A member of the RNA family "SAM riboswitch aptamer (S box leader)" from Megasphaera cerevisiae, 102 nucleotides long. A search with the family's covariance model found it, with a score of 85 bits. Pairs were carried over by alignment from the consensus structure, which is taken from published work. The organism belongs to Megasphaera cerevisiae, within Bacteria. About the family: The SAM riboswitch is found upstream of a number of genes which code for proteins involved in methionine or cysteine biosynthesis in Gram-positive bacteria.

[Rfam]
RNA sequence: UAUUCAUCCAGAGCAGUUGAAGGACUGGCCUUAUGACACUGCGGCAACCUCCCGUACGGGAAGGUGCCAAUUCCAGCAGGAUGUAUUCCUGACAGAUGAUAC
Numbered sequence: 001u002a003u004u005c006a007u008c009c010a011g012a013g014c015a016g017u018u019g020a021a022g023g024a025c026u027g028g029c030c031u032u033a034u035g036a037c038a039c040u041g042c043g044g045c046a047a048c049c050u051c052c053c054g055u056a057c058g059g060g061a062a063g064g065u066g067c068c069a070a071u072u073c074c075a076g077c078a079g080g081a082u083g084u085a086u087u088c089c090u091g092a093c094a095g096a097u098g099a100u101a102c
Stems, first nucleotide, its partner, number of pairs: 004099005013042005021031003025076004043068004048064002050061004072094001077091005